[Rfam]
The family of this 153-nucleotide RNA from Lachnospiraceae bacterium 10-1 is "Clostridiales-1 RNA". It scores 78 bits against the family's covariance model.
RNA sequence: AGCCCCGUCCAGCGUGCAAACGCCGGAACAAGUAAACUUGUUCCGGAGCUUGCACAUUGGACGGGCAAGGCGGAAUGAGCAGGUAGGGCGGCAGCCCGGAGUGGGAAUUCCGCCAGCAAUUGCGGGAGCGGUGAAGCCGCGAAGCAAUUGACU
Numbered sequence: 001a002g003c004c005c006c007g008u009c010c011a012g013c014g015u016g017c018a019a020a021c022g023c024c025g026g027a028a029c030a031a032g033u034a035a036a037c038u039u040g041u042u043c044c045g046g047a048g049c050u051u052g053c054a055c056a057u058u059g060g061a062c063g064g065g066c067a068a069g070g071c072g073g074a075a076u077g078a079g080c081a082g083g084u085a086g087g088g089c090g091g092c093a094g095c096c097c098g099g100a101g102u103g104g105g106a107a108u109u110c111c112g113c114c115a116g117c118a119a120u121u122g123c124g125g126g127a128g129c130g131g132u133g134a135a136g137c138c139g140c141g142a143a144g145c146a147a148u149u150g151a152c153u
Stems, first nucleotide, its partner, number of pairs: 004065004011058002014055006021048001023046004028041005069114008080103002086097004117150007128140004